[Rfam]
RNA sequence: AAUUCUGCUAUGAUGAUUUAAAGUUAUUUCAGACUAGAGUUUCUGAAUGGGGGUUAGUAGCCCUAAUUGUCGAAACAACCCUUGGCUGUCUGAGCAGAAUA
Numbered sequence: 001a002a003u004u005c006u007g008c009u010a011u012g013a014u015g016a017u018u019u020a021a022a023g024u025u026a027u028u029u030c031a032g033a034c035u036a037g038a039g040u041u042u043c044u045g046a047a048u049g050g051g052g053g054u055u056a057g058u059a060g061c062c063c064u065a066a067u068u069g070u071c072g073a074a075a076c077a078a079c080c081c082u083u084g085g086c087u088g089u090c091u092g093a094g095c096a097g098a099a100u101a
Stems, first nucleotide, its partner, number of pairs: 002100007040072001043069001048065005
Rfam assigns this 101-nucleotide RNA from Thraustotheca clavata to the family "Small nucleolar RNA Z157/R69/R10". The family's RNA type in Rfam is C/D-box small nucleolar RNA. Rfam links the family to the GO terms RNA processing and nucleolus. Pairs were carried over by alignment from the consensus structure, which was predicted with PFOLD. The organism belongs to Thraustotheca, within Eukaryota.